Description:
A member of the RNA family "tRNA" from Salmo trutta, 71 nucleotides long. Rfam links the family to the GO term triplet codon-amino acid adaptor activity. The family's RNA type in Rfam is transfer RNA. The base pairs follow the family's consensus structure, which is taken from published work.
[Rfam]
RNA sequence: UCCCGUGUGGCUCAGUUGGUAGAGCAUGGCGUUUGCAACGCCAGGGUUGUGGGUUCAAUUCCCACGGGGAA
Number, nucleotide and partner (000 for none) at each position: 001u070002c069003c068004c067005g000006u000007g000008u000009g000010g025011c024012u023013c022014a000015g000016u000017u000018g000019g000020u000021a000022g013023a012024g011025c010026a000027u043028g042029g041030c040031g039032u000033u000034u000035g000036c000037a000038a000039c031040g030041c029042c028043a027044g000045g000046g000047u000048u000049g065050u064051g063052g062053g061054u000055u000056c000057a000058a000059u000060u000061c053062c052063c051064a050065c049066g000067g004068g003069g002070a001071a000